[Rfam]
RNA sequence: CCGUUAGCUUUAGCUCACUGGUUACUUCACAGCAUCAAUUUAAUCGUAAGUUCGAGCUUGUCUCACCGUGGGCGUUGCCUGGCGUUAUU
Dot-bracket structure: .((((((.....((((..(((....(((.........................))).........))).)))).....)))))).....
The family of this 89-nucleotide sequence from Scyliorhinus torazame is "Vault RNA".
This family of RNAs are found as part of the enigmatic vault ribonucleoprotein complex. The complex consists of a major vault protein (MVP), two minor vault proteins (VPARP and TEP1), and several small untranslated RNA molecules. It has been suggested that the vault complex is involved in drug resistance.
The family's consensus secondary structure is taken from published work.